[Rfam]
Source information: Rfam assigns this 134-nucleotide RNA from Tichodroma muraria to the family "Small nucleolar RNA SNORA57". It scores 96 bits against the family's covariance model. Its family is annotated with RNA processing and nucleolus in the Gene Ontology. A reference for the family is Vitali et al. (2003), "Identification of 13 novel human modification guide RNAs", Nucleic Acids Res. Rfam describes the family as follows. U99 belongs to the H/ACA class of snoRNAs which are thought to guide the sites of modification of uridines to pseudouridines, the target for this family is unknown. It is annotated as an H/ACA-box small nucleolar RNA.
RNA sequence: CCUCCAGUUCUUGGCGGGCCCCGGCGGCCCCGUGCCGGGCUCUGUGAUGUGCGGAGGGAAAUCAGUGACCGGCGCGAAGUCUUCGGUGCCGGCGGUUCCGUCUGCCGGUCCCACCCUCACACGCCGGGACAAGG
Numbered sequence: 001c002c003u004c005c006a007g008u009u010c011u012u013g014g015c016g017g018g019c020c021c022c023g024g025c026g027g028c029c030c031c032g033u034g035c036c037g038g039g040c041u042c043u044g045u046g047a048u049g050u051g052c053g054g055a056g057g058g059a060a061a062u063c064a065g066u067g068a069c070c071g072g073c074g075c076g077a078a079g080u081c082u083u084c085g086g087u088g089c090c091g092g093c094g095g096u097u098c099c100g101u102c103u104g105c106c107g108g109u110c111c112c113a114c115c116c117u118c119a120c121a122c123g124c125c126g127g128g129a130c131a132a133g134g
Stems, first nucleotide, its partner, number of pairs: 001057005015044004020039001022037004070126005089108007